This 100-nucleotide RNA from Clostridium sp. HMP27 belongs to the Rfam family "Purine riboswitch aptamer".
Its family is annotated with purine nucleobase biosynthetic process in the Gene Ontology.
RNA sequence: UUUUAAAUAAAACUAAAGUUUCGUAUAACCCCAAUAAUAUGGUUUUGGGGUCUCUACUAGGAACCUAUAAUUCCUAAUUACGAAGAAAAUAUAUAUUUUU
Numbered sequence: 001u002u003u004u005a006a007a008u009a010a011a012a013c014u015a016a017a018g019u020u021u022c023g024u025a026u027a028a029c030c031c032c033a034a035u036a037a038u039a040u041g042g043u044u045u046u047g048g049g050g051u052c053u054c055u056a057c058u059a060g061g062a063a064c065c066u067a068u069a070a071u072u073c074c075u076a077a078u079u080a081c082g083a084a085g086a087a088a089a090u091a092u093a094u095a096u097u098u099u100u
Stems, first nucleotide, its partner, number of pairs: 019085007029049003033045002058076006